[Rfam]
RNA sequence: AAAAAGACAAACCCUGGUUUCCGUGUCCAAUGUUUAACCGUCCGUCUUAUUUGAAAAAAUUAUAAAAAAAAUAAAAAAAUAAGUCACGCAUAAAGUAUUUAUCAUGUUUUAUCAUCUAACAACAAUGAAAAUACUAAUUAUAAAAAAAUUUUAUAUAAUACGGACAGUCAAACGUUGGCAUGCAAAUCCGCGGUUUACU
Number, nucleotide and partner (000 for none) at each position: 001a000002a000003a000004a000005a000006g000007a000008c000009a000010a000011a000012c000013c000014c000015u000016g000017g000018u000019u000020u000021c000022c000023g000024u000025g000026u000027c178028c177029a176030a175031u174032g000033u172034u171035u170036a000037a168038c167039c000040g165041u164042c163043c162044g161045u160046c000047u158048u157049a156050u155051u000052u000053g000054a000055a000056a000057a000058a000059a000060u000061u000062a000063u000064a000065a000066a000067a000068a000069a000070a000071a000072u000073a000074a000075a000076a000077a000078a000079a000080u000081a000082a000083g000084u000085c000086a000087c000088g000089c000090a000091u000092a000093a000094a000095g000096u000097a000098u000099u000100u000101a000102u000103c000104a000105u000106g000107u000108u000109u000110u000111a000112u000113c000114a000115u000116c000117u000118a000119a000120c000121a000122a000123c000124a000125a000126u000127g000128a000129a000130a000131a000132u000133a000134c000135u000136a000137a000138u000139u000140a000141u000142a000143a000144a000145a000146a000147a000148a000149u000150u000151u000152u000153a000154u000155a050156u049157a048158a047159u000160a045161c044162g043163g042164a041165c040166a000167g038168u037169c000170a035171a034172a033173c000174g031175u030176u029177g028178g027179c000180a000181u000182g000183c000184a000185a000186a000187u000188c000189c000190g000191c000192g000193g000194u000195u000196u000197a000198c000199u000

A member of the RNA family "MIR812 microRNA precursor family" from Oryza sativa, 199 nucleotides long. Rfam 15.1 lists 57,451 matches to the family in 24 species. The source organism's lineage runs through Eukaryota, Viridiplantae, Euphyllophyta, commelinids and Oryza sativa.